[Rfam]
RNA sequence: GAGUAUACCCGAGUGGCGAGGUUAAGGUUUAUACCGAAGCCAUAGGGAAACCGAAAGCCCGUAACCUGGUUUCCAGGUGAGGGGCACCGUCCCAUAAGGGCGGUUUAGUCACUCGGGUAUGACCGGAAGCCGGGCGAUCUACCCCGGGGCAGGGCGAAGCGGGGUUUCCCGUGGAGGCCCGAAGAGGUGGGGCUUAUCUCUCUCAUGACCUCGGGGUAGAGGUGAAAAGCCACUCGGGCCCGGUUAUAGCCGGUC
Numbered sequence: 001g002a003g004u005a006u007a008c009c010c011g012a013g014u015g016g017c018g019a020g021g022u023u024a025a026g027g028u029u030u031a032u033a034c035c036g037a038a039g040c041c042a043u044a045g046g047g048a049a050a051c052c053g054a055a056a057g058c059c060c061g062u063a064a065c066c067u068g069g070u071u072u073c074c075a076g077g078u079g080a081g082g083g084g085c086a087c088c089g090u091c092c093c094a095u096a097a098g099g100g101c102g103g104u105u106u107a108g109u110c111a112c113u114c115g116g117g118u119a120u121g122a123c124c125g126g127a128a129g130c131c132g133g134g135c136g137a138u139c140u141a142c143c144c145c146g147g148g149g150c151a152g153g154g155c156g157a158a159g160c161g162g163g164g165u166u167u168c169c170c171g172u173g174g175a176g177g178c179c180c181g182a183a184g185a186g187g188u189g190g191g192g193c194u195u196a197u198c199u200c201u202c203u204c205a206u207g208a209c210c211u212c213g214g215g216g217u218a219g220a221g222g223u224g225a226a227a228a229g230c231c232a233c234u235c236g237g238g239c240c241c242g243g244u245u246a247u248a249g250c251c252g253g254u255c
Base pairs, nucleotide, nucleotide: 005120006119007118008117009116010115011114012113013112014111015110016109017108020041021040022039023038026035027034028033045052046051057085058084059083060082064078065077066076067075088102089101090100091099123253124252126250130243131242132241133240134239135238139219140218141217142216143215144214145213146212147211148210149209150207152180153179154178155177159172160171161170162169163168184204185203186202187201189200190199191198192197221231222230223229
The record is a 255-nucleotide part of an RNA from Candidatus Nanobsidianus stetteri, which matches "Archaeal large subunit ribosomal RNA" in Rfam. The base pairs follow the family's consensus structure, which is taken from published work. A search with the family's covariance model found it, with a score of 2535 bits. Lineage of the source: Archaea > Nanobdellati > Candidatus Nanoarchaeia > Nanopusillaceae > Candidatus Nanobsidianus. Clan: LSU clan. A reference for the family is Yusupov et al. (2001), "Crystal structure of the ribosome at 5.5 A resolution", Science.